Shown here is an 84-nucleotide RNA sequence from Asanoa hainanensis, a member of the family "ZMP/ZTP riboswitch aptamer (pfl RNA motif)". Taxonomically the source falls in Asanoa (Bacteria, Bacillati, Actinomycetes, Micromonosporales). The base pairs follow the family's consensus structure, which is taken from published work.

RNA sequence: UGACCGGGCCGCGACUGGCGAGGGUGGAUCACCACCGGGGAGCGGCCCGACGUUUGUGUGGCGCCGACCGCCUGGGUGCCUCCG
Number, nucleotide and partner (000 for none) at each position: 001u000002g000003a000004c000005c049006g048007g047008g046009c045010c044011g043012c042013g000014a000015c039016u038017g072018g071019c070020g069021a000022g000023g000024g035025u034026g033027g032028a000029u000030c000031a000032c027033c026034a025035c024036c000037g000038g016039g015040g000041a000042g012043c011044g010045g009046c008047c007048c006049g005050a000051c000052g000053u000054u000055u000056g000057u000058g000059u000060g000061g079062c078063g077064c076065c075066g000067a000068c000069c020070g019071c018072c017073u000074g000075g065076g064077u063078g062079c061080c000081u000082c000083c000084g000